[Rfam]
RNA sequence: GCGAUGAGCUAAUUUGCAUAAGACGAGAGACAUGCUUUCAAGCACGUUCGGGAUGUGGCCCAACGGUCUUUUCGCCGCAAACGCAUCAAAGACGCCAGCAUAUGCUAGGCGUC
Numbered sequence: 001g002c003g004a005u006g007a008g009c010u011a012a013u014u015u016g017c018a019u020a021a022g023a024c025g026a027g028a029g030a031c032a033u034g035c036u037u038u039c040a041a042g043c044a045c046g047u048u049c050g051g052g053a054u055g056u057g058g059c060c061c062a063a064c065g066g067u068c069u070u071u072u073c074g075c076c077g078c079a080a081a082c083g084c085a086u087c088a089a090a091g092a093c094g095c096c097a098g099c100a101u102a103u104g105c106u107a108g109g110c111g112u113c
Stems, first nucleotide, its partner, number of pairs: 014080004024074004028069004034043002045065002050061003091113006097106003
The record is a 113-nucleotide RNA from Bacillus sp. MUM 13, which matches "BsrF" in Rfam. The organism belongs to Bacillus, within Bacteria. The family's RNA type in Rfam is small RNA. For this family Rfam cites "Novel small RNA-encoding genes in the intergenic regions of Bacillus subtilis" (Saito et al., Gene, 2008).